[Rfam]
Source information:
Shown here is a 112-nucleotide RNA sequence from Robiginitalea myxolifaciens, a member of the family "SAM riboswitch aptamer (S box leader)". The match comes from Rfam's covariance-model search (50 bits). The SAM riboswitch is found upstream of a number of genes which code for proteins involved in methionine or cysteine biosynthesis in Gram-positive bacteria.
RNA sequence: CGGUUAUCGAGAAAGGUGGAGGGAAUAGACCCUUUGAAGCCUUAGCAACCCUUCGCCCCUGUGCGGAGAAGGUGCUACAUUCUAUCCCGUUUGUUGCGGUUUGUCAGAGCGG
Numbered sequence: 001c002g003g004u005u006a007u008c009g010a011g012a013a014a015g016g017u018g019g020a021g022g023g024a025a026u027a028g029a030c031c032c033u034u035u036g037a038a039g040c041c042u043u044a045g046c047a048a049c050c051c052u053u054c055g056c057c058c059c060u061g062u063g064c065g066g067a068g069a070a071g072g073u074g075c076u077a078c079a080u081u082c083u084a085u086c087c088c089g090u091u092u093g094u095u096g097c098g099g100u101u102u103g104u105c106a107g108a109g110c111g112g
Base pairs, nucleotide, nucleotide: 013043014042015041016040017039021032022031023030026084027083028082029081044076045075046074047073049072050071051068052067053066054065087112088111089110090109091108092107
Dot-bracket structure: ............(((((...(((..[[[[)))......)))))((((.((((((..........))))..))))))....]]]]..((((((..............))))))